[Rfam]
A member of the RNA family "Eukaryotic large subunit ribosomal RNA" from Prorocentrum micans, 598 nucleotides of a longer RNA. The source organism's lineage runs through Eukaryota, Sar, Alveolata, Dinophyceae and Prorocentrum.
RNA sequence: CGGGGAAAGAAGACCCUGUUGAGCUUGACUCUAGUCGAACUUUGUGAAAUGACUUAGGAGGUGUAGACUAAGUGGGAGCUUUGGCGAUCUUGAAAUACCACUACUCUUAAUGUCAUUUUACUUACUUCCGUUAGACUGAGACUUGCAUCACAGCCGAGUUUUGGAUCUAAGGUUGUCUUUUUUGAUGUUGAUCUGUGCGGAAGACAUAGUCAGGUGGGGAGUUUGGCUGGGGCGGCACAUCUGUUAAAUGAUAACGCAGGUGUCCUAAGGUGAGCUCAAUGAGAACAGAAAUCUCAUGUGGACCAAAAGGGGAAAAGCUUGCUUGAUUUUGAUUUUCAGUACGAAUACAAACUGUGAAAACAUGGCCUAUCGAUCCUUUAGGUCUGAGAAAUGUUCAGCUAGAGGUGUCAGAAAAGUUACCACAGGGAUAACUGGCUUGUGGCAGCCAAGCGUUCAUAGCGACGUUGCUUUUUGAUCCUUCGAUGUCGGCUCUUCCUAUCAUUGAGACGCAGAAGUCCCAAAGUGUCGGAUUGUUCACCCGCCAAUAGGGAACGUGAGCUGGGUUUAGACCGUCGUGAGACAGGUUAGUUUUACCCUA
Numbered sequence: 001c002g003g004g005g006a007a008a009g010a011a012g013a014c015c016c017u018g019u020u021g022a023g024c025u026u027g028a029c030u031c032u033a034g035u036c037g038a039a040c041u042u043u044g045u046g047a048a049a050u051g052a053c054u055u056a057g058g059a060g061g062u063g064u065a066g067a068c069u070a071a072g073u074g075g076g077a078g079c080u081u082u083g084g085c086g087a088u089c090u091u092g093a094a095a096u097a098c099c100a101c102u103a104c105u106c107u108u109a110a111u112g113u114c115a116u117u118u119u120a121c122u123u124a125c126u127u128c129c130g131u132u133a134g135a136c137u138g139a140g141a142c143u144u145g146c147a148u149c150a151c152a153g154c155c156g157a158g159u160u161u162u163g164g165a166u167c168u169a170a171g172g173u174u175g176u177c178u179u180u181u182u183u184g185a186u187g188u189u190g191a192u193c194u195g196u197g198c199g200g201a202a203g204a205c206a207u208a209g210u211c212a213g214g215u216g217g218g219g220a221g222u223u224u225g226g227c228u229g230g231g232g233c234g235g236c237a238c239a240u241c242u243g244u245u246a247a248a249u250g251a252u253a254a255c256g257c258a259g260g261u262g263u264c265c266u267a268a269g270g271u272g273a274g275c276u277c278a279a280u281g282a283g284a285a286c287a288g289a290a291a292u293c294u295c296a297u298g299u300g301g302a303c304c305a306a307a308a309g310g311g312g313a314a315a316a317g318c319u320u321g322c323u324u325g326a327u328u329u330u331g332a333u334u335u336u337c338a339g340u341a342c343g344a345a346u347a348c349a350a351a352c353u354g355u356g357a358a359a360a361c362a363u364g365g366c367c368u369a370u371c372g373a374u375c376c377u378u379u380a381g382g383u384c385u386g387a388g389a390a391a392u393g394u395u396c397a398g399c400u401a402g403a404g405g406u407g408u409c410a411g412a413a414a415a416g417u418u419a420c421c422a423c424a425g426g427g428a429u430a431a432c433u434g435g436c437u438u439g440u441g442g443c444a445g446c447c448a449a450g451c452g453u454u455c456a457u458a459g460c461g462a463c464g465u466u467g468c469u470u471u472u473u474g475a476u477c478c479u480u481c482g483a484u485g486u487c488g489g490c491u492c493u494u495c496c497u498a499u500c501a502u503u504g505a506g507a508c509g510c511a512g513a514a515g516u517c518c519c520a521a522a523g524u525g526u527c528g529g530a531u532u533g534u535u536c537a538c539c540c541g542c543c544a545a546u547a548g549g550g551a552a553c554g555u556g557a558g559c560u561g562g563g564u565u566u567a568g569a570c571c572g573u574c575g576u577g578a579g580a581c582a583g584g585u586u587a588g589u590u591u592u593a594c595c596c597u598a
Stems, first nucleotide, its partner, number of pairs: 003597003007592002015426004020422002022418005028222004035214002039210003044121010054110007071102005078085002126202005136195001138193002144156002148152001171189003225238001226236003239261006264365002270322006276302002279297006303312002327351003332346004353362003376404006384398004435476001437474001439473001441469006450460002487562001488560004492554001493551005500525002503520002506517003527541003531537001568586004572581003

The base pairs follow the family's consensus structure, which is taken from published work.